[Rfam]
RNA: MIR2912 microRNA precursor family
Organism: Populus deltoides
RNA sequence: UGUAGAACUCAAGAUAUGGGCUGAAUAAUGAAUAGUAUAUGGGCUGCAUGACAUAUUCCGACUUCUCUGUUGUUGCUACAAUUUGAACUUAAAAAUUGUCCUUUUAAAUCUUGGACUCUUCAUUAAAAUUUUAAGCCUAUGUCUUAGCUCUCUCUA
Number, nucleotide and partner (000 for none) at each position: 001u000002g155003u000004a153005g152006a151007a000008c147009u146010c000011a145012a144013g143014a142015u141016a140017u139018g138019g137020g136021c000022u133023g132024a131025a130026u000027a129028a000029u127030g000031a000032a000033u000034a000035g123036u122037a000038u000039a000040u000041g119042g118043g117044c000045u115046g000047c000048a112049u000050g110051a109052c000053a000054u000055a104056u000057u000058c000059c000060g099061a000062c098063u000064u000065c000066u000067c000068u092069g000070u000071u000072g088073u087074u086075g000076c000077u000078a000079c000080a000081a000082u000083u000084u000085g000086a074087a073088c072089u000090u000091a000092a068093a000094a000095a000096u000097u000098g062099u060100c000101c000102u000103u000104u055105u000106a000107a000108a000109u051110c050111u000112u048113g000114g000115a045116c000117u043118c042119u041120u000121c000122a036123u035124u000125a000126a000127a029128a000129u027130u025131u024132u023133a022134a000135g000136c020137c019138u018139a017140u016141g015142u014143c013144u012145u011146a009147g008148c000149u000150c000151u006152c005153u004154c000155u002156a000